[Rfam]
RNA sequence: CUUCAACGAGCCCAGCCACAGCGGCUCUUCCGCCGUCCUGUCGCUGCCGUAGGUCGCCAGCAGCGCCUGGGCCUC
Numbered sequence: 001c002u003u004c005a006a007c008g009a010g011c012c013c014a015g016c017c018a019c020a021g022c023g024g025c026u027c028u029u030c031c032g033c034c035g036u037c038c039u040g041u042c043g044c045u046g047c048c049g050u051a052g053g054u055c056g057c058c059a060g061c062a063g064c065g066c067c068u069g070g071g072c073c074u075c
Stems, first nucleotide, its partner, number of pairs: 014026004033070002039065002044060003047056001049054001
Rfam assigns this 75-nucleotide sequence from Actinacidiphila paucisporea to the family "ASpks TB sRNA".
By type it is an antisense RNA.
The family has 77 seed sequences and 9,052 matches in Rfam 15.1.
A search with the family's covariance model found it, with a score of 70 bits.